mir-86 microRNA precursor family: a 76-nucleotide RNA from Panagrellus redivivus. A search with the family's covariance model found it, with a score of 85 bits.
RNA sequence: GAGCCAGUUAAGUGAAUGCUUUGCCACAGUCUUAGAAACUGCAUUAAGCUGGGCUGGGGUUCGCUUAAGCUGGACA
Numbered sequence: 001g002a003g004c005c006a007g008u009u010a011a012g013u014g015a016a017u018g019c020u021u022u023g024c025c026a027c028a029g030u031c032u033u034a035g036a037a038a039c040u041g042c043a044u045u046a047a048g049c050u051g052g053g054c055u056g057g058g059g060u061u062c063g064c065u066u067a068a069g070c071u072g073g074a075c076a
Base pairs, nucleotide, nucleotide: 004073005072006071009067010066011065012064013063014062015061016060017059019058020057021056023054024053025052027051028050029049
The source organism's lineage runs through Eukaryota, Metazoa, Chromadorea, Rhabditida and Panagrellus.